[Rfam]
RNA: Small nucleolar RNA SNORD2
Organism: Betta splendens
RNA sequence: GAGUGAAAUGAUGCUUCAUCUUUCGGGACUUACCCAACAAUGGGGACAAUUUUACAACCACUGAUCACUC
Numbered sequence: 001g002a003g004u005g006a007a008a009u010g011a012u013g014c015u016u017c018a019u020c021u022u023u024c025g026g027g028a029c030u031u032a033c034c035c036a037a038c039a040a041u042g043g044g045g046a047c048a049a050u051u052u053u054a055c056a057a058c059c060a061c062u063g064a065u066c067a068c069u070c
Stems, first nucleotide, its partner, number of pairs: 001070006